[Rfam]
RNA sequence: GCCGGGCUUGGUAACGCAAGCCUGUGACCCAAGCGGGGGCACCAAAGUGAUUGGACAUGGGCCAAGCUCAGAAGGUUGGGCCUGUGGUUGCGACUGCUGGCCUGCCCGUUCCAAGCGGAGAGUUGGGCCAUGCGACCCAUUCGAAAGCUUAGGCCUUGUGGCUCCUAGAGCGGAGGGCAAUGCGUGAGGCUGGUUUCACAGAGCAGCGAAUACCUCCCGCUCUCUGCGGUGGAAGGAUUACGGGCCGGUGCUUCCCAGGCCCUGUAACACCCAAUGAGCUGGCCUCAUCGAACAGUCACUUUU
Numbered sequence: 001g002c003c004g005g006g007c008u009u010g011g012u013a014a015c016g017c018a019a020g021c022c023u024g025u026g027a028c029c030c031a032a033g034c035g036g037g038g039g040c041a042c043c044a045a046a047g048u049g050a051u052u053g054g055a056c057a058u059g060g061g062c063c064a065a066g067c068u069c070a071g072a073a074g075g076u077u078g079g080g081c082c083u084g085u086g087g088u089u090g091c092g093a094c095u096g097c098u099g100g101c102c103u104g105c106c107c108g109u110u111c112c113a114a115g116c117g118g119a120g121a122g123u124u125g126g127g128c129c130a131u132g133c134g135a136c137c138c139a140u141u142c143g144a145a146a147g148c149u150u151a152g153g154c155c156u157u158g159u160g161g162c163u164c165c166u167a168g169a170g171c172g173g174a175g176g177g178c179a180a181u182g183c184g185u186g187a188g189g190c191u192g193g194u195u196u197c198a199c200a201g202a203g204c205a206g207c208g209a210a211u212a213c214c215u216c217c218c219g220c221u222c223u224c225u226g227c228g229g230u231g232g233a234a235g236g237a238u239u240a241c242g243g244g245c246c247g248g249u250g251c252u253u254c255c256c257a258g259g260c261c262c263u264g265u266a267a268c269a270c271c272c273a274a275u276g277a278g279c280u281g282g283c284c285u286c287a288u289c290g291a292a293c294a295g296u297c298a299c300u301u302u303u
Stems, first nucleotide, its partner, number of pairs: 001040003004023007028037003044302010056290001058287003061283004068277003074271003078262007087254001090251003097248008106236002109234005115227009125164008134155001136153002139150001142147001165170001172217005181210001183208003190201003